[Rfam]
RNA sequence: GAAAACAUUGGUGAGAAUCCAAUGCCCCAAAAACCCAAGGUUUCCUCCGCAAGGUUCGUCCACGGAGGGUGAGUCAGGGCCUAAAAUCAGGCCGAAAGGCGUAGUUGAUGGACAACAGGUCAAUAUUCCUGUACUACCCCUUGUUGGUACGGAGGGACGGAGGAGGCUAGGUUAGCCGAAAGAUGGUUAUAGGUUUAAGGACACAAGGUGACCCUACUUUUUCAGGGUAAGAAGGGGUAGAGAAAAUGCCUCGAGCCGAGGUCCGAGUACCAAGCGCUGCAGCGCUGAAGUAUGAGCCCCGUGGACUAGCCAUUGCUUCUCCACGAGGCUCAUACCAGGCGCUAUGGCGCUGAAAUAUGUAACCCAUGCCAUACUCCCAGGAAAAGCUCGAACGACCUUCAACAAAGGGGUACCUGUACCCGAAACCGACACAGGUGGGUAGGUAGAGAAUACCUAGGGGCG
Numbered sequence: 001g002a003a004a005a006c007a008u009u010g011g012u013g014a015g016a017a018u019c020c021a022a023u024g025c026c027c028c029a030a031a032a033a034c035c036c037a038a039g040g041u042u043u044c045c046u047c048c049g050c051a052a053g054g055u056u057c058g059u060c061c062a063c064g065g066a067g068g069g070u071g072a073g074u075c076a077g078g079g080c081c082u083a084a085a086a087u088c089a090g091g092c093c094g095a096a097a098g099g100c101g102u103a104g105u106u107g108a109u110g111g112a113c114a115a116c117a118g119g120u121c122a123a124u125a126u127u128c129c130u131g132u133a134c135u136a137c138c139c140c141u142u143g144u145u146g147g148u149a150c151g152g153a154g155g156g157a158c159g160g161a162g163g164a165g166g167c168u169a170g171g172u173u174a175g176c177c178g179a180a181a182g183a184u185g186g187u188u189a190u191a192g193g194u195u196u197a198a199g200g201a202c203a204c205a206a207g208g209u210g211a212c213c214c215u216a217c218u219u220u221u222u223c224a225g226g227g228u229a230a231g232a233a234g235g236g237g238u239a240g241a242g243a244a245a246a247u248g249c250c251u252c253g254a255g256c257c258g259a260g261g262u263c264c265g266a267g268u269a270c271c272a273a274g275c276g277c278u279g280c281a282g283c284g285c286u287g288a289a290g291u292a293u294g295a296g297c298c299c300c301g302u303g304g305a306c307u308a309g310c311c312a313u314u315g316c317u318u319c320u321c322c323a324c325g326a327g328g329c330u331c332a333u334a335c336c337a338g339g340c341g342c343u344a345u346g347g348c349g350c351u352g353a354a355a356u357a358u359g360u361a362a363c364c365c366a367u368g369c370c371a372u373a374c375u376c377c378c379a380g381g382a383a384a385a386g387c388u389c390g391a392a393c394g395a396c397c398u399u400c401a402a403c404a405a406a407g408g409g410g411u412a413c414c415u416g417u418a419c420c421c422g423a424a425a426c427c428g429a430c431a432c433a434g435g436u437g438g439g440u441a442g443g444u445a446g447a448g449a450a451u452a453c454c455u456a457g458g459g460g461c462g
Stems, first nucleotide, its partner, number of pairs: 006024006025460004033440004039420002044068006053061002075416004080111002085106003089102001091100003115132005135412007142404004146397002150394002152389003159377004165370003170364005175194003179190001426435002442454004
This 462-nucleotide part of an RNA belongs to the Rfam family "Bacterial large subunit ribosomal RNA".
Gene Ontology terms of the family: ribosome and structural constituent of ribosome.
The base pairs follow the family's consensus structure, which is taken from published work.